[Rfam]
RNA: Bacterial small signal recognition particle RNA
Organism: Stenotrophobium rhamnosiphilum
RNA sequence: GUGCCGGCCUCCCGCGACAGCAAGCCGUGAACCCCGCCAGGCCCGGAAGGGAGCAACGGUAUCGGUGACGCUGGGUGCCGGGAGUAGCUGGUACGGG
Numbered sequence: 001g002u003g004c005c006g007g008c009c010u011c012c013c014g015c016g017a018c019a020g021c022a023a024g025c026c027g028u029g030a031a032c033c034c035c036g037c038c039a040g041g042c043c044c045g046g047a048a049g050g051g052a053g054c055a056a057c058g059g060u061a062u063c064g065g066u067g068a069c070g071c072u073g074g075g076u077g078c079c080g081g082g083a084g085u086a087g088c089u090g091g092u093a094c095g096g097g
Base pairs, nucleotide, nucleotide: 004091005090006089007088008087009084010083011082012081013080014079015075018073019072020071021070024066025065026064027063034059035058036057042051043050044049